Shown here is a 61-nucleotide RNA sequence, a member of the family "S15-Flavobacteria ribosomal protein leader". For this family Rfam cites "Discovery of 20 novel ribosomal leader candidates in bacteria and archaea" (Eckert and Weinberg, BMC Microbiol, 2020). By type it is a cis-regulatory leader. It is one of the family's seed sequences. The family is grouped with related families in Rfam's "Ribosomal Protein S15 Leader clan".

[Rfam]
RNA sequence: UAUAUUUGCCAUCGCUUUAAUUAGCGAAAUACAUAACAAUCAUUGAAAUAAUAUUAGCAUG
Numbered sequence: 001u002a003u004a005u006u007u008g009c010c011a012u013c014g015c016u017u018u019a020a021u022u023a024g025c026g027a028a029a030u031a032c033a034u035a036a037c038a039a040u041c042a043u044u045g046a047a048a049u050a051a052u053a054u055u056a057g058c059a060u061g
Stems, first nucleotide, its partner, number of pairs: 012027005